[Rfam]
Shown here is an 83-nucleotide RNA from Neobacillus rhizophilus, a member of the family "Glycine riboswitch aptamer". This family represents the bacterial glycine riboswitch. Glycine riboswitches usually consist of two metabolite-binding aptamers domains with similar structures in tandem. The aptamers cooperatively bind glycine to regulate the expression of downstream genes. In Bacillus subtilis, this riboswitch is found upstream of the gcvT operon which controls glycine degradation. NCBI's taxonomy places the organism under Bacteria, Bacillati, Bacillota, Caryophanales, Neobacillus.
RNA sequence: CUCUGGAGAGCGUAUUUGAAAAUGCCACCAAAGGAGAAAGCUCCAUAAAUAUUGGAGUUUAACUCUCAGGUAAAAGGACAGAG
Numbered sequence: 001c002u003c004u005g006g007a008g009a010g011c012g013u014a015u016u017u018g019a020a021a022a023u024g025c026c027a028c029c030a031a032a033g034g035a036g037a038a039a040g041c042u043c044c045a046u047a048a049a050u051a052u053u054g055g056a057g058u059u060u061a062a063c064u065c066u067c068a069g070g071u072a073a074a075a076g077g078a079c080a081g082a083g
Stems, first nucleotide, its partner, number of pairs: 001083005012025004027071003031066001034065003040058006